[Rfam]
RNA: Small nucleolar RNA SNORA64/SNORA10 family
Nucleotides: 140
Base pairs, nucleotide, nucleotide: 002066005063006062007061008060011058012057013056015054019046020045021044022043023042024041025040026039075129076128078126080123084121091117092116093115095113096112098110099109
Number, partner (000 for none) and nucleotide at each position: 001000a002066c003000a004000c005063u006062c007061u008060c009000a010000g011058c012057u013056c014000u015054g016000c017000u018000c019046a020045g021044u022043u023042g024041c025040g026039c027000c028000u029000g030000a031000c032000u033000c034000c035000a036000g037000u038000g039026g040025u041024g042023c043022a044021g045020c046019u047000g048000u049000c050000g051000u052000u053000u054015u055000u056013g057012a058011g059000a060008g061007g062006g063005a064000a065000a066002g067000c068000a069000a070000a071000u072000g073000a074000g075129u076128u077000c078126a079000a080123a081000u082000u083000u084121g085000c086000a087000c088000g089000g090000c091117a092116g093115g094000g095113a096112g097000u098110c099109c100000u101000g102000c103000u104000g105000c106000a107000g108000u109099g110098g111000u112096c113095u114000c115093u116092c117091u118000g119000u120000u121084c122000c123080u124000u125000a126078u127000c128076a129075a130000a131000c132000u133000c134000a135000a136000c137000a138000u139000g140000u